[Rfam]
RNA: Small nucleolar RNA snR60/Z15/Z230/Z193/J17
RNA sequence: GGUCAUUUCAUGAUGAUACACAACCAAUGCAUAGUUCAUCUGAGACCUGAUGACAAACUAUACCUUCAAUUCUUUCGCUCCCAUCUGAUAAUCAAG
Numbered sequence: 001g002g003u004c005a006u007u008u009c010a011u012g013a014u015g016a017u018a019c020a021c022a023a024c025c026a027a028u029g030c031a032u033a034g035u036u037c038a039u040c041u042g043a044g045a046c047c048u049g050a051u052g053a054c055a056a057a058c059u060a061u062a063c064c065u066u067c068a069a070u071u072c073u074u075u076c077g078c079u080c081c082c083a084u085c086u087g088a089u090a091a092u093c094a095a096g
Stems, first nucleotide, its partner, number of pairs: 001093003005089003